[Rfam]
RNA sequence: AUGACUCUGCGGAACUCGUGAUUCGGAUAGAAUGCCGGGGCGAGCCAACACUUUACAAAAGGGAGCAUGAUGAAGUGGCGUGGAAGUGUUAGCCCUGGCCUCGGCCGGGGCAAGACGGAAGCGCCCAGUCAGCACCCACCUGCUUACGCAGGUUCGUACCCACUGUCCACACGGUUCUGCGGAGUCUAU
Number, nucleotide and partner (000 for none) at each position: 001a000002u000003g186004a185005c184006u183007c182008u181009g180010c179011g178012g177013a176014a175015c174016u000017c173018g172019u171020g000021a000022u000023u000024c000025g000026g000027a000028u000029a000030g000031a000032a000033u000034g000035c000036c000037g160038g159039g000040g157041c156042g155043a154044g153045c152046c151047a000048a000049c000050a000051c000052u000053u000054u000055a000056c000057a000058a000059a000060a000061g137062g136063g135064a000065g133066c132067a000068u000069g129070a000071u000072g000073a000074a000075g000076u000077g125078g124079c000080g000081u000082g000083g000084a000085a000086g000087u000088g116089u115090u000091a000092g000093c110094c109095c108096u107097g106098g000099c000100c000101u000102c000103g000104g000105c000106c097107g096108g095109g094110g093111c000112a000113a000114g000115a089116c088117g000118g000119a000120a000121g000122c000123g000124c078125c077126c000127a000128g000129u069130c000131a000132g066133c065134a000135c063136c062137c061138a000139c000140c000141u000142g000143c000144u000145u000146a000147c000148g000149c000150a000151g046152g045153u044154u043155c042156g041157u040158a000159c038160c037161c000162a000163c000164u000165g000166u000167c000168c000169a000170c000171a019172c018173g017174g015175u014176u013177c012178u011179g010180c009181g008182g007183a006184g005185u004186c003187u000188a000189u000
6S / SsrS RNA: a 189-nucleotide sequence from Litorilinea aerophila. The base pairs follow the family's consensus structure, which is taken from published work. NCBI's taxonomy places the organism under Bacteria, Chloroflexota, Caldilineales, Caldilineaceae, Litorilinea. About the family: E. coli 6S RNA was the first non coding RNA to be sequenced, but its function was unknown until recently. It consists of 184 nucleotides that fold into an extended hairpin structure with a large single-stranded internal bulge. The 6S RNA specifically associates with RNA polymerase holoenzyme containing the sigma70 specificity factor. This interaction represses expression from a sigma70-dependent promoter during stationary phase. 6S RNA homologs have recently been identified in most bacterial genomes. Many Gram-positive species have two copies of 6S RNA. In Bacillus subtilis, both copies appear to interact with RNA polymerase holoenzyme containing the housekeeping sigma factor and be expressed during different stages of growth. In many proteobacteria, 6S RNA may be processed from a transcript encoding homologs of the E. coli YgfA protein which is a putative 5-formyltetrahydrofolate cycloligase activity.